Source information: The family of this 290-nucleotide RNA sequence from Electrophorus electricus is "Metazoan signal recognition particle RNA". It scores 231 bits against the family's covariance model. NCBI's taxonomy places the organism under Eukaryota, Craniata, Actinopteri, Otophysi, Electrophorus. The family's RNA type in Rfam is non-coding RNA gene.
RNA sequence: ACCAGAGGACACUCUAAGUCCAAGCUCCCGGGAGGCUGAGGCUGGCGGACCGUUUGAGCCCAGGGGUUCUGGGCUGUAGCGGGCUAUGCCGAUCGGGUGUCCGCACUAAGUUCGGUAUCGAUAUGGUGCUCCUGAGGGAUCUUGGGACCACCAGGUCGUCUAAGGAGGGGUGAACCGGCCCAGGUCGAAAACGGAGCAGGUCAAAGCCCCUGUGCCGAUCAGUAGUGGGAUCGCGCCUGUGAAUAGACGCUGCAGUGCAGCCUGUGUAAUACAGCGGGACCCAGUCUCUU
Number, nucleotide and partner (000 for none) at each position: 001a000002c008003c007004a000005g000006a000007g003008g002009a000010c000011a000012c000013u000014c000015u000016a000017a000018g000019u033020c032021c031022a000023a000024g000025c000026u000027c000028c000029c000030g000031g021032g020033a019034g000035g000036c000037u000038g288039a287040g286041g285042c284043u283044g282045g281046c000047g000048g000049a000050c277051c276052g275053u274054u273055u000056g000057a000058g267059c266060c000061c264062a263063g262064g261065g000066g000067u000068u000069c260070u259071g258072g000073g256074c255075u254076g253077u252078a251079g250080c249081g248082g000083g000084c246085u245086a244087u243088g000089c241090c000091g000092a000093u000094c239095g238096g237097g236098u235099g234100u233101c229102c228103g000104c227105a226106c225107u224108a223109a000110g220111u000112u218113c217114g216115g215116u214117a213118u212119c158120g157121a156122u155123a000124u153125g152126g151127u150128g149129c000130u147131c146132c145133u144134g143135a142136g141137g000138g000139a000140u000141c136142u135143u134144g133145g132146g131147a130148c000149c128150a127151c126152c125153a124154g000155g122156u121157c120158g119159u165160c164161u000162a000163a000164g160165g159166a211167g210168g209169g208170g207171u206172g000173a000174a000175c000176c000177g202178g201179c200180c199181c000182a000183g000184g000185u194186c193187g192188a000189a000190a000191a000192c187193g186194g185195a000196g000197c000198a000199g180200g179201u178202c177203a000204a000205a000206g171207c170208c169209c168210c167211u166212g118213u117214g116215c115216c114217g113218a112219u000220c110221a000222g000223u108224a107225g106226u105227g104228g102229g101230a000231u000232c000233g100234c099235g098236c097237c096238u095239g094240u000241g089242a000243a087244u086245a085246g084247a000248c081249g080250c079251u078252g077253c076254a075255g074256u073257g000258c071259a070260g069261c064262c063263u062264g061265u000266g059267u058268a000269a000270u000271a000272c000273a054274g053275c052276g051277g050278g000279a000280c000281c045282c044283a043284g042285u041286c040287u039288c038289u000290u000
Rfam's curators write: The signal recognition particle (SRP) is a universally conserved ribonucleoprotein. Its family is annotated with SRP-dependent cotranslational protein targeting to membrane, signal sequence recognition and signal recognition particle, endoplasmic reticulum targeting in the Gene Ontology.